The family of this 52-nucleotide sequence from Polerovirus IXYMAV is "Exoribonuclease-resistant RNA (xrRNA) plant-infecting virus (class 3)". Exoribonuclease-resistant RNA (xrRNA) plant-infecting virus (class 3) is a ncRNA that was reported in Plant viruses. Pairs were carried over by alignment from the consensus structure, which is taken from published work. Rfam classes the family as a cis-regulatory element. On this family, see Gezelle et al., bioRxiv [Preprint] 2024: "The pseudoknot structure of a viral RNA reveals a conserved mechanism for programmed exoribonuclease resistance". Rfam links the family to the GO term viral RNA genome replication.
[Rfam]
RNA sequence: UAAUCAGCCAGACAUACGCAAGCUGCAAGUACUGGAGAUUUUAGUCUUGUUA
Numbered sequence: 001u002a003a004u005c006a007g008c009c010a011g012a013c014a015u016a017c018g019c020a021a022g023c024u025g026c027a028a029g030u031a032c033u034g035g036a037g038a039u040u041u042u043a044g045u046c047u048u049g050u051u052a
Stems, first nucleotide, its partner, number of pairs: 002039001004037001008035002011033001012030002018050005
Dot-bracket structure: .[.[...[[.[[[....(((((......]]..]]].].]......)))))..